[Rfam]
RNA sequence: UUAGGUUUUCUUCAUUUUCUUCUGGAAUUUUUUCAGGAUUAUUGUUGCUGAAGAUUGAUGGAGAUGAUAUGAAGAUGAAGAAAACCUAACG
Numbered sequence: 001u002u003a004g005g006u007u008u009u010c011u012u013c014a015u016u017u018u019c020u021u022c023u024g025g026a027a028u029u030u031u032u033u034c035a036g037g038a039u040u041a042u043u044g045u046u047g048c049u050g051a052a053g054a055u056u057g058a059u060g061g062a063g064a065u066g067a068u069a070u071g072a073a074g075a076u077g078a079a080g081a082a083a084a085c086c087u088a089a090c091g
Stems, first nucleotide, its partner, number of pairs: 005085015037056004042051002